[Rfam]
RNA sequence: CCGCGCCUGCAGCAUGAUGGUCAAGGCCACCACGCCCGUGCGCAUUCUGAAUCUGGUCGCGCCCCUGGCUCACAAGGCCACGGACAUGCACACCACGGAGACCGCUGCCUCAGUGCAGGCCAGGCCCGGUGCAGUUUCCCGGCUGAUCGGCGCAAGCCUUCGGCCGGGCGACGUGGAAAGCGCGAACGCACG
Dot-bracket structure: ...(((.....((.((.((((....)))).)).))....)))..............((((((((.(((((.....))))).))...(((((....(((...((.((((......))))....)).)))))))).((.(((((((((..(((....))).))))))))).))........)))))).......
Notes: This 192-nucleotide RNA belongs to the Rfam family "RT-15 RNA". It is one of the family's seed sequences.